[Rfam]
Nucleotides: 087
Base pairs, nucleotide, nucleotide: 034066035065038062039061040058041057042056043055044054046052
Number, partner (000 for none) and nucleotide at each position: 001000c002000a003000u004000u005000c006000c007000a008000a009000a010000a011000c012000a013000a014000c015000g016000g017000a018000a019000g020000c021000c022000c023000u024000a025000c026000c027000u028000c029000u030000c031000u032000u033000c034066c035065g036000u037000c038062c039061u040058u041057g042056c043055g044054g045000c046052u047000c048000c049000a050000a051000u052046g053000a054044c055043c056042g057041c058040g059000c060000c061039a062038g063000c064000g065035u066034g067000a068000a069000u070000c071000a072000g073000a074000a075000u076000u077000g078000c079000u080000u081000u082000a083000a084000g085000g086000c087000c
This 87-nucleotide sequence from Paenibacillus sp. D9 belongs to the Rfam family "BsrC". From the family's description: The 301 nucleotide sequence from Kouji Nakamura has been trimmed to a highly conserved ~85 nucleotide long core to form this family. Taxonomically the source falls in Paenibacillus (Bacteria, Bacillati, Bacillota, Paenibacillaceae).